[Rfam]
RNA sequence: AAGCGUGCUAUCCUAAGGACCGGGGCUUGUUUGUAGCUCUAGGUUCUCCAAGUGCAUGCAAGAGAAAAAGGGUCGUCUUUGACUGCUGUGGCCUUUUCAUGCCGUUUGCAACCACUCAACGAUCCUACAGAU
Numbered sequence: 001a002a003g004c005g006u007g008c009u010a011u012c013c014u015a016a017g018g019a020c021c022g023g024g025g026c027u028u029g030u031u032u033g034u035a036g037c038u039c040u041a042g043g044u045u046c047u048c049c050a051a052g053u054g055c056a057u058g059c060a061a062g063a064g065a066a067a068a069a070g071g072g073u074c075g076u077c078u079u080u081g082a083c084u085g086c087u088g089u090g091g092c093c094u095u096u097u098c099a100u101g102c103c104g105u106u107u108g109c110a111a112c113c114a115c116u117c118a119a120c121g122a123u124c125c126u127a128c129a130g131a132u
Base pairs, nucleotide, nucleotide: 013042014041018038020036022034024032070125071124072123073122074121075120085112088105089104090103091102
A member of the RNA family "Small nucleolar RNA SNORA44" from Cyclopterus lumpus, 132 nucleotides long.
Its Rfam clan is "SNORA44 clan".
Rfam classes the family as an H/ACA-box small nucleolar RNA.
From the family's description: ACA44 is a member of the H/ACA class of snoRNA that guide the sites of modification of uridines to pseudouridines.
It scores 67 bits against the family's covariance model.
For this family Rfam cites "RNomics: an experimental approach that identifies 201 candidates for novel, small, non-messenger RNAs in mouse" (Huttenhofer et al., EMBO J, 2001).
Its family is annotated with nucleolus and RNA processing in the Gene Ontology.
The family has 27 seed sequences and 1,056 matches in Rfam 15.1.